[Rfam]
RNA sequence: GCAGGGUACGGAGAUGGCAUUCCUCCCCAAACCGCCCUGACCGGCUGAUGAUGCCUGCACACGU
Numbered sequence: 001g002c003a004g005g006g007u008a009c010g011g012a013g014a015u016g017g018c019a020u021u022c023c024u025c026c027c028c029a030a031a032c033c034g035c036c037c038u039g040a041c042c043g044g045c046u047g048a049u050g051a052u053g054c055c056u057g058c059a060c061a062c063g064u
Base pairs, nucleotide, nucleotide: 010026011025012024013023016055017054018053019052020051021050034045035044036043
RNA: Fluoride riboswitch aptamer (crcB RNA motif)